[Rfam]
RNA: sok antitoxin (CssrC)
Organism: Citrobacter rodentium
RNA sequence: GGGUGCCGGAAGCUUUCGAGCUUCAGGCCAUUGCUGAGGUUCGGAAAGAAGAAAGCCCCAAGGAGAUAGUGUUAUCAACCUUGAGGCUACCCAUCCGAACCAGACAAUUCGGAUGGUAGUCUCUUCUUCGCAUGGAGGCAAUACAUGCUGACGAAAUAUG
Dot-bracket structure: (((.((......(((((..(.(.(..(.......)..)).)..)))))......)))))((((.((((....))))..))))(((((...(((((((((........)))))))))..)))))...((..((.............))..)).........